The family of this 45-nucleotide RNA from Rossellomorea vietnamensis is "PreQ1 (pre queuosine) riboswitch aptamer". On this family, see Reader et al., J Biol Chem 2004: "Identification of four genes necessary for biosynthesis of the modified nucleoside queuosine". Pairs were carried over by alignment from the consensus structure. This family is a bacterial riboswitch that binds to the metabolite preQ1, an intermediate in the biosynthesis of the modified nucleoside queuosine from GTP. One example of this riboswitch is located in the leader of the Bacillus subtilis ykvJKLM (queCDEF) operon which encodes four genes necessary for queuosine production. Lineage of the source: Bacteria > Bacillota > Bacilli > Caryophanales > Rossellomorea.

[Rfam]
RNA sequence: UCCCGAGAGGUUCUAGCACAACCCUCUAUAAAAAACUAAGGAAAA
Numbered sequence: 001u002c003c004c005g006a007g008a009g010g011u012u013c014u015a016g017c018a019c020a021a022c023c024c025u026c027u028a029u030a031a032a033a034a035a036c037u038a039a040g041g042a043a044a045a
Base pairs, nucleotide, nucleotide: 006027007026008025009024010023016037